[Rfam]
RNA sequence: UUAUAAGCAAAUUUGACUUUUUAGGUUCAUUCAUUUAAUGAUGUAUGUGGUCCAUAAUAUAGAUCACAUACAUCAUUAAAAGAAUGAUCCUAAAAAGUUAAAUUUGCUUAUAA
Numbered sequence: 001u002u003a004u005a006a007g008c009a010a011a012u013u014u015g016a017c018u019u020u021u022u023a024g025g026u027u028c029a030u031u032c033a034u035u036u037a038a039u040g041a042u043g044u045a046u047g048u049g050g051u052c053c054a055u056a057a058u059a060u061a062g063a064u065c066a067c068a069u070a071c072a073u074c075a076u077u078a079a080a081a082g083a084a085u086g087a088u089c090c091u092a093a094a095a096a097g098u099u100a101a102a103u104u105u106g107c108u109u110a111u112a113a
Stems, first nucleotide, its partner, number of pairs: 002112011014100011027087006034080010048066004

A member of the RNA family "MIR2593 microRNA precursor family" from Medicago truncatula, 113 nucleotides long. The match comes from Rfam's covariance-model search (100 bits). The family's consensus secondary structure was predicted with RNAalifold.